[Rfam]
RNA sequence: AUGAUCCAGUAGGAAUUGAACCUACGAAUUUGCCAAUUAUGAGUUGGGCGCUUUAACCAUUCAGCCAUGGGC
Number, nucleotide and partner (000 for none) at each position: 001a000002u000003g000004a000005u071006c070007c069008a000009g025010u024011a023012g022013g021014a000015a000016u000017u000018g000019a000020a000021c013022c012023u011024a010025c009026g000027a000028a000029u000030u000031u000032g000033c000034c000035a000036a000037u000038u000039a068040u067041g066042a000043g065044u064045u063046g062047g061048g060049c000050g058051c000052u000053u000054u000055a000056a000057c000058c050059a000060u048061u047062c046063a045064g044065c043066c041067a040068u039069g007070g006071g005072c000
RNA: Plastid-ycf2 5UTR RNA
Organism: Phoenix dactylifera